[Rfam]
RNA: Mammalian CPEB3 ribozyme
RNA sequence: UCAGCACAACAUGGGAGCUUUAGCAGGAACAUUCAUGUUGUGGCCUUGUCAGAUUCUCAAAUCUGCUAGCUGCU
Numbered sequence: 001u002c003a004g005c006a007c008a009a010c011a012u013g014g015g016a017g018c019u020u021u022a023g024c025a026g027g028a029a030c031a032u033u034c035a036u037g038u039u040g041u042g043g044c045c046u047u048g049u050c051a052g053a054u055u056c057u058c059a060a061a062u063c064u065g066c067u068a069g070c071u072g073c074u
Base pairs, nucleotide, nucleotide: 013046014045017044018043019042022074023073024072025071026070029041030040031039050065051064052063053062054061055060